[Rfam]
RNA: SAM riboswitch aptamer (S box leader)
Organism: Clostridium oryzae
RNA sequence: AUCUUAUCAAGAGAGGCGGAGGGACUGGCCCUAUGAAACCCAACAACCAGCAUUUUUCAUUUGAAUGUAUGGUGUUAAUUCCUGCAAACUAAGUUUUGAGAGAUAAGAG
Numbered sequence: 001a002u003c004u005u006a007u008c009a010a011g012a013g014a015g016g017c018g019g020a021g022g023g024a025c026u027g028g029c030c031c032u033a034u035g036a037a038a039c040c041c042a043a044c045a046a047c048c049a050g051c052a053u054u055u056u057u058c059a060u061u062u063g064a065a066u067g068u069a070u071g072g073u074g075u076u077a078a079u080u081c082c083u084g085c086a087a088a089c090u091a092a093g094u095u096u097u098g099a100g101a102g103a104u105a106a107g108a109g
Base pairs, nucleotide, nucleotide: 002108003107004106005105006104007103008102013041015040016039021031022030023029025084027082028081042076043075044074045073047072048071050068051067052066053065054064055063080101085098086097087096088095